Background: The record is a 271-nucleotide RNA sequence from Ammoniphilus oxalaticus, which matches "BsrG" in Rfam. NCBI's taxonomy places the organism under Bacteria, Bacillati, Bacilli, Caryophanales, Ammoniphilus. A reference for the family is Jahn and Brantl (2013), "One antitoxin--two functions: SR4 controls toxin mRNA decay and translation", Nucleic Acids Res. Rfam describes the family as follows. bsrE, bsrG and bsrH pair through intermolecular interactions with antisense sRNAs. They form type I toxin/antitoxin system that includes an mRNA encoding for a short, toxic peptide (bsrE, bsrG and bsrH) and an antitoxin that is comprised of an antisense RNA. bsrG encodes a 39-amino-acid toxin, and the 180 nucleotide antisense sRNA called SR4 acts as the antitoxin (they overlap by 123 nucleotides). SR4 interaction with the 3'UTR of bsrG RNA promotes bsrG degradation and inhibits its translation. Gene Ontology terms of the family: autolysis and toxin activity.
RNA sequence: GGCAAUUACAUAAAGCGAGGUGGCGGCUGAACUCCCCAAAAAGGGGGUGAGGCUUAUGACGACAUUCGAAGCAUUUAGUUUAAUCGCUCAGUUUAGUUUAGUGCUAAUUGCAUUACUAACACUGGUCGUAAGUAUUGUCGUCUAUUUAAACAAACAGAAAUAGCCACCUCUGCUCGCCAAAGUAAGGUGACUAUUUCAGUUACAAUUUAAAUUUGGUCAGCCGCUAUCUAUGCGGCAUGUAGUUGCUCAGUCAGGCGGUCCAACGCCUGAC
Dot-bracket structure: (((((.(((.(.....((((((.....(.(.(((((......)))))).).......(((((((......(.(..........))........((.(.................................).)).)))))))......................))))))...........(((................))).................((((.......)))).).))).)))))..((((((((......))))))))